[Rfam]
RNA sequence: GCAUCCUUAGCUCAGUUGGAUAGAGCGUUGGCCUCCGGAGCCAAAGGUCGCUGGUUCGAAUCCAGCAGGAUGCA
Numbered sequence: 001g002c003a004u005c006c007u008u009a010g011c012u013c014a015g016u017u018g019g020a021u022a023g024a025g026c027g028u029u030g031g032c033c034u035c036c037g038g039a040g041c042c043a044a045a046g047g048u049c050g051c052u053g054g055u056u057c058g059a060a061u062c063c064a065g066c067a068g069g070a071u072g073c074a
Stems, first nucleotide, its partner, number of pairs: 001073007010026004028044005050066005
Dot-bracket structure: (((((((..((((.........)))).(((((.......))))).....(((((.......)))))))))))).
Rfam assigns this 74-nucleotide RNA from Chloracidobacterium thermophilum to the family "tRNA". Gene Ontology term of the family: triplet codon-amino acid adaptor activity. By type it is a transfer RNA. It scores 73 bits against the family's covariance model.